[Rfam]
RNA sequence: AACAAGUUGCGUUAGCGAUUGAAGUGGCAUCCUUUUUGGCUGUCAGUUUGAGUGAAUUUUGAGGAACGAAAAAAUUUGUAUCGAUAACAAAGCAAAAAAGAUAAAACGUAAAGCGAGACCUGAA
Numbered sequence: 001a002a003c004a005a006g007u008u009g010c011g012u013u014a015g016c017g018a019u020u021g022a023a024g025u026g027g028c029a030u031c032c033u034u035u036u037u038g039g040c041u042g043u044c045a046g047u048u049u050g051a052g053u054g055a056a057u058u059u060u061g062a063g064g065a066a067c068g069a070a071a072a073a074a075u076u077u078g079u080a081u082c083g084a085u086a087a088c089a090a091a092g093c094a095a096a097a098a099a100g101a102u103a104a105a106a107c108g109u110a111a112a113g114c115g116a117g118a119c120c121u122g123a124a
Stems, first nucleotide, its partner, number of pairs: 016115002019112002024107002029102003035097002037094002040092002
About this RNA:
The record is a 124-nucleotide RNA sequence from Polaribacter sp. WD7, which matches "Flavo-1 RNA" in Rfam. The match comes from Rfam's covariance-model search (42 bits). The source organism's lineage runs through Bacteria, Pseudomonadati, Bacteroidota, Flavobacteriaceae and Polaribacter. The base pairs follow the family's consensus structure, which is taken from published work.